[Rfam]
RNA sequence: CCCAAACUUACAAAGCGUUUUUUAUCACAGCCCCCUUCCCUUCGCGAGCGGGUCAAGGUCCUGGAAUUUCAACCCCCGUCUAAAUCGAUCCCAGAGGAUCCGAGACCAAUCGUCUCGUCACGCCCGACUAGAAAUGCGUCCCUGCCCCUGUUGUGUCUGAUCCACAUUUUCCCAGAGAUGCGCAUGCGUGGAGGGUAUAGUGGGCCAUGCGGACUUGGUAUGGGCGUGGGGGUUUCUUGUUGCCUAUCUACCUCAUUUCAUCUCUCUGAACGUGUGUCCUCGGCAUCAAGCGUGCUCGUGACCCGGGUAGAAGGCUUUAGUGCAAUUUGGUGACGUCCUCCCUUCGUUUAUGAAGGAUCACCUCGACUCGAAUACGAGUCGAGGGAGGAUAACUCGAUCAGGACUACUCUGGG
Dot-bracket structure: .(((...[[[[[[.((...............................))..........(((((.......((((...........(((((....)))))((((((.....))))))(((((((................(......................................................................)..........))))))))))).............................................................................................]]].]]].((((((((((....................................)))))))))).......))))).......))).

A member of the RNA family "Nuclear RNase P" from Tremellales sp. Tagirdzhanova-0007, 413 nucleotides long. The match comes from Rfam's covariance-model search (38 bits). It is annotated as a ribozyme.